[Rfam]
RNA sequence: GUCACCUCAGGAUCUUGUUGAAAUGCAGGUUCUGGUUUGGUAGAUUAAGGUGGGGCUCAAGGUUCUGCAUUUUUAACAAGCUCCCAUGUGAUGCUGG
Dot-bracket structure: ..(((....((..((((((((((.(((((.(((..........................))).))))).))).))))))).))....))).......

Shown here is a 97-nucleotide sequence from Ailuropoda melanoleuca, a member of the family "mir-544 microRNA precursor family".
Taxonomically the source falls in Ailuropoda (Eukaryota, Chordata, Euteleostomi, Amniota).